The family of this 75-nucleotide sequence from Loxodonta africana is "Small nucleolar RNA SNORD86". A search with the family's covariance model found it, with a score of 47 bits. The family has 6 seed sequences and 274 matches in Rfam 15.1. From the family's description: U86 belongs to the C/D family of snoRNAs. It is the human orthologue of Xenopus laevis U86 and has no identified RNA target. It is annotated as a C/D-box small nucleolar RNA.
[Rfam]
RNA sequence: UUUCACAGUGAUGUCUGACCAGGGCCCCUGGCCUCUGCUAUGGAGGUGACGGCCAGUCCCGGUGUCUGAGUGAUU
Numbered sequence: 001u002u003u004c005a006c007a008g009u010g011a012u013g014u015c016u017g018a019c020c021a022g023g024g025c026c027c028c029u030g031g032c033c034u035c036u037g038c039u040a041u042g043g044a045g046g047u048g049a050c051g052g053c054c055a056g057u058c059c060c061g062g063u064g065u066c067u068g069a070g071u072g073a074u075u
Base pairs, nucleotide, nucleotide: 003073004072005071006070010066011065012064018063019062020061022059023058024057025056026052027051029049031047032046033045034044038042